[Rfam]
Nucleotides: 213
Stems, first nucleotide, its partner, number of pairs: 001213009012204003015198005028184003031041001033090007050083002058075001060073001062071003081191001102177005107125004129170004138162002144155003
Number, partner (000 for none) and nucleotide at each position: 001213u002212u003211c004210a005209c006208g007207c008206g009205c010000g011000u012204c013203u014202g015198u016197g017196g018195u019194u020000g021000c022000a023000a024000g025000u026000c027000g028184a029183u030182g031041c032000c033090a034089g035088u036087c037086g038085c039084a040000g041031g042000c043000g044000a045000a046000a047000c048000g049000a050083u051082c052000c053000a054000c055000g056000u057000a058075a059000g060073c061000c062071g063070g064069g065000a066000a067000a068000a069064u070063u071062c072000c073060g074000g075058u076000g077000a078000g079000c080000a081191u082051g083050g084039u085038g086037c087036g088035g089034c090033u091000u092000a093000g094000a095000g096000g097000u098000a099000a100000g101000u102177c103176c104175u105174g106173c107125c108124g109123a110122a111000a112000c113000g114000a115000u116000a117000u118000u119000c120000u121000g122110u123109u124108c125107g126000a127000g128000a129170g130169c131168u132167g133000c134000a135000g136000u137000a138162g139161u140000g141000g142000g143000g144155a145154g146153g147000c148000a149000g150000a151000g152000u153146c154145c155144u156000u157000a158000g159000g160000a161139g162138c163000g164000a165000a166000c167132c168131a169130g170129c171000c172000a173106g174105c175104a176103g177102g178000c179000g180000a181000g182030u183029g184028u185000g186000g187000g188000g189000u190000c191081a192000a193000a194019g195018a196017c197016c198015a199000g200000g201000u202014c203013a204012g205009g206008c207007g208006c209005g210004u211003g212002a213001a